c-di-AMP riboswitch aptamer (ydaO/yuaA leader): a 134-nucleotide RNA from Streptomyces paludis.
[Rfam]
RNA sequence: GAACCCUUCACGUGUGGCAGGAGCGGGGGACCCAGGCAGUACGCCGAUCCGGGUGUUCCGGACCGGCUCGGGGUGAAGCCGCGCACCACGCGCGGCCGGGCAGCUCCAGCCCGAACCCGACAGCUCACCUCGUA
Numbered sequence: 001g002a003a004c005c006c007u008u009c010a011c012g013u014g015u016g017g018c019a020g021g022a023g024c025g026g027g028g029g030a031c032c033c034a035g036g037c038a039g040u041a042c043g044c045c046g047a048u049c050c051g052g053g054u055g056u057u058c059c060g061g062a063c064c065g066g067c068u069c070g071g072g073g074u075g076a077a078g079c080c081g082c083g084c085a086c087c088a089c090g091c092g093c094g095g096c097c098g099g100g101c102a103g104c105u106c107c108a109g110c111c112c113g114a115a116c117c118c119g120a121c122a123g124c125u126c127a128c129c130u131c132g133u134a
Stems, first nucleotide, its partner, number of pairs: 005021002023133006033070001071118003079095004098112004